This 85-nucleotide sequence from Marvinbryantia formatexigens belongs to the Rfam family "ZMP/ZTP riboswitch aptamer (pfl RNA motif)". NCBI's taxonomy places the organism under Bacteria, Bacillati, Bacillota, Lachnospirales, Marvinbryantia formatexigens. Rfam links the family to the GO terms regulation of purine nucleotide biosynthetic process and one-carbon metabolic process. A search with the family's covariance model found it, with a score of 60 bits.
RNA sequence: AAGCAGUUGUACGACUGGCGGAAAAAGCAGGAUUACCUGCGGGGAGUACAACGUUAUCCUGAUGCCGACCGCCUGGGCGACCGCU
Numbered sequence: 001a002a003g004c005a006g007u008u009g010u011a012c013g014a015c016u017g018g019c020g021g022a023a024a025a026a027g028c029a030g031g032a033u034u035a036c037c038u039g040c041g042g043g044g045a046g047u048a049c050a051a052c053g054u055u056a057u058c059c060u061g062a063u064g065c066c067g068a069c070c071g072c073c074u075g076g077g078c079g080a081c082c083g084c085u
Stems, first nucleotide, its partner, number of pairs: 003055001006052007015043002017073005028039004063079004